[Rfam]
RNA: Nuclear RNase P
RNA sequence: UGAGCUAUAAUGUCACACUUGGGACAUACAUACAGAGUACAAUAAAAAAAAAGUUACUUUCUAUGUCUCGGGAAGGUCUGAGUAAAGGUUGAUACUCUGUAGUCAUUAUUGGACCCUCUAGCCGGGGGCGUUGUCUAUAACAAUGGCAGGGAAACCAGAAAAUUCAGUCAUAGUGUUAGUCAAGGUCAGAUGCAGCUCUAUGAUUGUUGGAAAUUUCCUGUAACCGGCAGUUUUAGUUCAAUCUGUGACACGGUUAUGCCGUAACUCAAUUCAGACUAGUCUAUGGCUCG
Numbered sequence: 001u002g003a004g005c006u007a008u009a010a011u012g013u014c015a016c017a018c019u020u021g022g023g024a025c026a027u028a029c030a031u032a033c034a035g036a037g038u039a040c041a042a043u044a045a046a047a048a049a050a051a052a053g054u055u056a057c058u059u060u061c062u063a064u065g066u067c068u069c070g071g072g073a074a075g076g077u078c079u080g081a082g083u084a085a086a087g088g089u090u091g092a093u094a095c096u097c098u099g100u101a102g103u104c105a106u107u108a109u110u111g112g113a114c115c116c117u118c119u120a121g122c123c124g125g126g127g128g129c130g131u132u133g134u135c136u137a138u139a140a141c142a143a144u145g146g147c148a149g150g151g152a153a154a155c156c157a158g159a160a161a162a163u164u165c166a167g168u169c170a171u172a173g174u175g176u177u178a179g180u181c182a183a184g185g186u187c188a189g190a191u192g193c194a195g196c197u198c199u200a201u202g203a204u205u206g207u208u209g210g211a212a213a214u215u216u217c218c219u220g221u222a223a224c225c226g227g228c229a230g231u232u233u234u235a236g237u238u239c240a241a242u243c244u245g246u247g248a249c250a251c252g253g254u255u256a257u258g259c260c261g262u263a264a265c266u267c268a269a270u271u272c273a274g275a276c277u278a279g280u281c282u283a284u285g286g287c288u289c290g
Base pairs, nucleotide, nucleotide: 001290002289003288004287007284008283009282012249013248014247015246016245017244021069022068023067024066025065035059036058037057038056039055040053078274079273080272081271082270087225088224089223090222114128115127116126117125118124129145130144131143132142133141134140146221147220148219149218150217151216152215165206166205167204168203169202250262251261252260253259